[Rfam]
RNA sequence: UGCCUGGCGCCUGGAACUUUCGUCUCAGCCUUAGAUUUUGACAAGGUGAGCAAAGUUUCAGGUGUGUCGGCGA
Numbered sequence: 001u002g003c004c005u006g007g008c009g010c011c012u013g014g015a016a017c018u019u020u021c022g023u024c025u026c027a028g029c030c031u032u033a034g035a036u037u038u039u040g041a042c043a044a045g046g047u048g049a050g051c052a053a054a055g056u057u058u059c060a061g062g063u064g065u066g067u068c069g070g071c072g073a
Base pairs, nucleotide, nucleotide: 002071003070004069006067008064009063010062011061012060013059014058016056017055018054019053020052024050025049026048027047029046030045031044